This 62-nucleotide sequence from Erinaceus europaeus belongs to the Rfam family "Selenocysteine insertion sequence 1".
RNA sequence: GCCAGAUAAUGAUGACUUGUGCAGAAACCCACCCGGGCUGCCCAUGUCUGAGCCUCUGUGGC
Numbered sequence: 001g002c003c004a005g006a007u008a009a010u011g012a013u014g015a016c017u018u019g020u021g022c023a024g025a026a027a028c029c030c031a032c033c034c035g036g037g038c039u040g041c042c043c044a045u046g047u048c049u050g051a052g053c054c055u056c057u058g059u060g061g062c
Stems, first nucleotide, its partner, number of pairs: 001062004014048003018044002021041003028037003

About the family: The incorporation of selenocysteine into a protein sequence is directed by an in-frame UGA codon (usually a stop codon) within the coding region of the mRNA. Selenoprotein mRNAs contain a conserved secondary structure in the 3' UTR that is required for the distinction of UGA stop from UGA selenocysteine.